RNA: mir-29 microRNA precursor family
Organism: Eleutherodactylus coqui
RNA sequence: GAAUGACCGAUCUCUCUUGGUGUUUAGAGGCCUACAUUGUAAUCUAGCACCAUUUGAAAUCGGUUAUGA
Numbered sequence: 001g002a003a004u005g006a007c008c009g010a011u012c013u014c015u016c017u018u019g020g021u022g023u024u025u026a027g028a029g030g031c032c033u034a035c036a037u038u039g040u041a042a043u044c045u046a047g048c049a050c051c052a053u054u055u056g057a058a059a060u061c062g063g064u065u066a067u068g069a
Stems, first nucleotide, its partner, number of pairs: 003067002005064001007063005013057002018052005025046004